RNA sequence: CGUUUGGAGCUAGUUUGGCUAGUCUGUUAUCAGCCUGAGCUUCGGCUUUGGUGUACUAUCAGGCUAUUUUUGCCGGCCAACUCUCAGGAUUGAAAGGAAAGCUUGGUGCUUUGGAGUCUAAAGAGACCCUCUCCUGAAGCCUCUGGUGGAGCGUGGUCUGCCCUUGGCCCUUUUGAGCCUAUAGUUUGGCUUAAUGGCUCUAAACGGCCCGUCUUGAAACACGG
Numbered sequence: 001c002g003u004u005u006g007g008a009g010c011u012a013g014u015u016u017g018g019c020u021a022g023u024c025u026g027u028u029a030u031c032a033g034c035c036u037g038a039g040c041u042u043c044g045g046c047u048u049u050g051g052u053g054u055a056c057u058a059u060c061a062g063g064c065u066a067u068u069u070u071u072g073c074c075g076g077c078c079a080a081c082u083c084u085c086a087g088g089a090u091u092g093a094a095a096g097g098a099a100a101g102c103u104u105g106g107u108g109c110u111u112u113g114g115a116g117u118c119u120a121a122a123g124a125g126a127c128c129c130u131c132u133c134c135u136g137a138a139g140c141c142u143c144u145g146g147u148g149g150a151g152c153g154u155g156g157u158c159u160g161c162c163c164u165u166g167g168c169c170c171u172u173u174u175g176a177g178c179c180u181a182u183a184g185u186u187u188g189g190c191u192u193a194a195u196g197g198c199u200c201u202a203a204a205c206g207g208c209c210c211g212u213c214u215u216g217a218a219a220c221a222c223g224g
Base pairs, nucleotide, nucleotide: 001206002205003204004203005202006201007200008199009198010197011196012195017056020055021054024051025050026049060188061187062186063185064184065183066182209224210223211222212221
Eukaryotic large subunit ribosomal RNA: a 224-nucleotide part of an RNA.
Rfam links the family to the GO terms structural constituent of ribosome and ribosome.
Pairs were carried over by alignment from the consensus structure, which is taken from published work.